[Rfam]
RNA sequence: GUGAGAAGCCUAAUUAUUGACAAGGUGUGAAGAGCCGCGUGUGCUCAGUGUGCUUCCUCCGGCCCCUGAAUGUGGCUAACCUUAACCCUGCAGCCGUUGCCCAUAAUCCAAUGGGUUUGCGGUCGUAAUGCGUAAGUGCGGGAUGGGACCAACUACUUUGGGUGUCCGUGUUUCCUGUUUUUCUUUUGAUUGCAUUUUAUGGUGACAAUUUAUAGUGUAUAGAUUGUCAUCAUGGGUGCACAAGUAUCUAGACAAAAUGUU
Numbered sequence: 001g002u003g004a005g006a007a008g009c010c011u012a013a014u015u016a017u018u019g020a021c022a023a024g025g026u027g028u029g030a031a032g033a034g035c036c037g038c039g040u041g042u043g044c045u046c047a048g049u050g051u052g053c054u055u056c057c058u059c060c061g062g063c064c065c066c067u068g069a070a071u072g073u074g075g076c077u078a079a080c081c082u083u084a085a086c087c088c089u090g091c092a093g094c095c096g097u098u099g100c101c102c103a104u105a106a107u108c109c110a111a112u113g114g115g116u117u118u119g120c121g122g123u124c125g126u127a128a129u130g131c132g133u134a135a136g137u138g139c140g141g142g143a144u145g146g147g148a149c150c151a152a153c154u155a156c157u158u159u160g161g162g163u164g165u166c167c168g169u170g171u172u173u174c175c176u177g178u179u180u181u182u183c184u185u186u187u188g189a190u191u192g193c194a195u196u197u198u199a200u201g202g203u204g205a206c207a208a209u210u211u212a213u214a215g216u217g218u219a220u221a222g223a224u225u226g227u228c229a230u231c232a233u234g235g236g237u238g239c240a241c242a243a244g245u246a247u248c249u250a251g252a253c254a255a256a257a258u259g260u261u
Stems, first nucleotide, its partner, number of pairs: 005011001020026002034196001042194003050183001060168003064162003073151003080147003087142006094122004099116006124130002198234017
Shown here is a 261-nucleotide RNA from Enterovirus alpharhino, a member of the family "Picornavirus internal ribosome entry site (IRES)".
About the family: This family represents the Picornavirus internal ribosome entry site (IRES). IRES elements allow cap and end-independent translation of mRNA in the host cell. It has been found that La autoantigen (La) is required for Coxsackievirus B3 (CVB3) IRES-mediated translation, and it has been suggested that La may be required for the efficient translation of the viral RNA in the pancreas.
Gene Ontology term of the family: ribosome binding.